[Rfam]
RNA sequence: CAAUGGAGGAAGUAUGGUAAUAUGCACAUAAAUUGAUUUGGGUCUUCGGCAUGCCCUCUCUAAUGCCAUUUGACUUUGAUUUGAGGGCAUGAUUUUGAAGCAAAACA
Numbered sequence: 001c002a003a004u005g006g007a008g009g010a011a012g013u014a015u016g017g018u019a020a021u022a023u024g025c026a027c028a029u030a031a032a033u034u035g036a037u038u039u040g041g042g043u044c045u046u047c048g049g050c051a052u053g054c055c056c057u058c059u060c061u062a063a064u065g066c067c068a069u070u071u072g073a074c075u076u077u078g079a080u081u082u083g084a085g086g087g088c089a090u091g092a093u094u095u096u097g098a099a100g101c102a103a104a105a106c107a
Stems, first nucleotide, its partner, number of pairs: 012025004040090001042088003049080001053074001055072001
The family of this 107-nucleotide RNA sequence from Rhododendron simsii is "Small nucleolar RNA snoR100". Pairs were carried over by alignment from the consensus structure, which was predicted with WAR. For this family Rfam cites "Experimental RNomics: identification of 140 candidates for small non-messenger RNAs in the plant Arabidopsis thaliana" (Marker et al., Curr Biol, 2002).